[Rfam]
RNA sequence: GGGCGGUAGGAUACGGGGCCGUGGCACUGUCUGAGAGGCCGUAAGAUUCUCACAGUGAACCGGUCUCUUUUCCCACCCCUCA
Numbered sequence: 001g002g003g004c005g006g007u008a009g010g011a012u013a014c015g016g017g018g019c020c021g022u023g024g025c026a027c028u029g030u031c032u033g034a035g036a037g038g039c040c041g042u043a044a045g046a047u048u049c050u051c052a053c054a055g056u057g058a059a060c061c062g063g064u065c066u067c068u069u070u071u072c073c074c075a076c077c078c079c080u081c082a
Base pairs, nucleotide, nucleotide: 006076007075009073010072015067016066017065018064019063020062021061025057026056027055028054029053030052033051034050035049
Rfam assigns this 82-nucleotide RNA sequence from Astyanax mexicanus to the family "mir-128 microRNA precursor family".
For this family Rfam cites "The developmental miRNA profiles of zebrafish as determined by small RNA cloning" (Chen et al., Genes Dev, 2005).
Pairs were carried over by alignment from the consensus structure, which was predicted with RNAalifold.
Lineage of the source: Eukaryota > Bilateria > Ostariophysi > Acestrorhamphidae > Astyanax.